RNA sequence: UGUGAUAAACUAAAGGAGUUGUUUAGGCAACCCUUGGUGCUUACUUUCCUUUCACCAAGCAUAUUAUAUACGGUAUAACCGUUAAAGGAGAAAAAAUG
Numbered sequence: 001u002g003u004g005a006u007a008a009a010c011u012a013a014a015g016g017a018g019u020u021g022u023u024u025a026g027g028c029a030a031c032c033c034u035u036g037g038u039g040c041u042u043a044c045u046u047u048c049c050u051u052u053c054a055c056c057a058a059g060c061a062u063a064u065u066a067u068a069u070a071c072g073g074u075a076u077a078a079c080c081g082u083u084a085a086a087g088g089a090g091a092a093a094a095a096a097u098g
Base pairs, nucleotide, nucleotide: 018031019030020029021028022027033059034058035057036056037055038054039053046090047089048088049087050086051085070082071081072080073079
A member of the RNA family "PreQ1-II (pre queuosine) riboswitch aptamer" from Streptococcus pluranimalium, 98 nucleotides long. A reference for the family is Kang et al. (2014), "Structural determinants for ligand capture by a class II preQ1 riboswitch", Proc Natl Acad Sci U S A. A search with the family's covariance model found it, with a score of 90 bits. About the family: preQ1-II riboswitch was first reported for Weinberg et al. 2007 it was recognised in Streptococcaceae and Lactococcus families in 5' untranslated regions of genes of a membrane protein classified as COG4708 or DUF988. Meyers et al. 2008 confirm that preQ1-II recognise the queuosine (Q) precursor pre-queuosine 1 (preQ1). Rfam links the family to the GO term queuosine biosynthetic process.